Rfam assigns this 382-nucleotide sequence from Tetragenococcus halophilus to the family "Bacterial RNase P class B". NCBI's taxonomy places the organism under Bacteria, Bacillota, Lactobacillales, Enterococcaceae, Tetragenococcus halophilus. Gene Ontology terms of the family: dimeric ribonuclease P complex, tRNA processing and ribonuclease P activity.
RNA sequence: GUUUUCGGAUAAUCGCGGUUUGAGUAAAUCUAACUGAGGAAAGUCCAUGCUCACACAGACUGAGAUGUCUGUAGUGUUCGUGCUCAGCGAAAAAAUAAGCUGAGGUAUUUCAUUUAUUUAAGAUAACGGCAGGAAAAAAAGCUAAGGUGUAUUUUAUACACUAUGCUUGAGUAUCCUUGAAAGUGCCACAGUGACGAAGCAAUAAGAGAAAUCUUAUUGGUGGAACGCGGUAAACCCCUCGAGUGAGCAACCCAAACAAAGGUCGGGGCGCUUUUUGCGGCGGAAUUCAACGCUAGCAAAAAGACAAUGUUUCAUUGUAGACAGAUGAUUAUCCAAGUUAUCUUGCCCUGUAAGAUGACUGGACAAAACAUGGCUUAUAGAA
Numbered sequence: 001g002u003u004u005u006c007g008g009a010u011a012a013u014c015g016c017g018g019u020u021u022g023a024g025u026a027a028a029u030c031u032a033a034c035u036g037a038g039g040a041a042a043g044u045c046c047a048u049g050c051u052c053a054c055a056c057a058g059a060c061u062g063a064g065a066u067g068u069c070u071g072u073a074g075u076g077u078u079c080g081u082g083c084u085c086a087g088c089g090a091a092a093a094a095a096u097a098a099g100c101u102g103a104g105g106u107a108u109u110u111c112a113u114u115u116a117u118u119u120a121a122g123a124u125a126a127c128g129g130c131a132g133g134a135a136a137a138a139a140a141g142c143u144a145a146g147g148u149g150u151a152u153u154u155u156a157u158a159c160a161c162u163a164u165g166c167u168u169g170a171g172u173a174u175c176c177u178u179g180a181a182a183g184u185g186c187c188a189c190a191g192u193g194a195c196g197a198a199g200c201a202a203u204a205a206g207a208g209a210a211a212u213c214u215u216a217u218u219g220g221u222g223g224a225a226c227g228c229g230g231u232a233a234a235c236c237c238c239u240c241g242a243g244u245g246a247g248c249a250a251c252c253c254a255a256a257c258a259a260a261g262g263u264c265g266g267g268g269c270g271c272u273u274u275u276u277g278c279g280g281c282g283g284a285a286u287u288c289a290a291c292g293c294u295a296g297c298a299a300a301a302a303g304a305c306a307a308u309g310u311u312u313c314a315u316u317g318u319a320g321a322c323a324g325a326u327g328a329u330u331a332u333c334c335a336a337g338u339u340a341u342c343u344u345g346c347c348c349u350g351u352a353a354g355a356u357g358a359c360u361g362g363a364c365a366a367a368a369c370a371u372g373g374c375u376u377a378u379a380g381a382a
Stems, first nucleotide, its partner, number of pairs: 004382003007378001008333007016036005041376003045373005050247005055072006078242003082238001083104006105127001106125005128237002131177004139168004146162007183235002185231003200219008251267003271303007304318006336360010